[Rfam]
Shown here is a 123-nucleotide RNA sequence from Carlito syrichta, a member of the family "Small nucleolar RNA SNORA69".

RNA sequence: AAUGUUAGUUUUUAAAAGUGCUUCAUUUUGUGGAAGUACUAUCUGCUGAAAGAAAAGCUGUGAUAAUCACUUGUGACUUUGCCUUUUUGAGGGUAAAGUCAUAAUAGAUUGACAUGGUCAAUU
Numbered sequence: 001a002a003u004g005u006u007a008g009u010u011u012u013u014a015a016a017a018g019u020g021c022u023u024c025a026u027u028u029u030g031u032g033g034a035a036g037u038a039c040u041a042u043c044u045g046c047u048g049a050a051a052g053a054a055a056a057g058c059u060g061u062g063a064u065a066a067u068c069a070c071u072u073g074u075g076a077c078u079u080u081g082c083c084u085u086u087u088u089g090a091g092g093g094u095a096a097a098g099u100c101a102u103a104a105u106a107g108a109u110u111g112a113c114a115u116g117g118u119c120a121a122u123u
Stems, first nucleotide, its partner, number of pairs: 004046002007044002017040008058117005064111005074101012
Annotation
Rfam's curators write: U69 is a member of the H/ACA class of small nucleolar RNAs (snoRNAs) which act as guides in the the modification of uridines to pseudouridines. The family has 16 seed sequences and 808 matches in Rfam 15.1.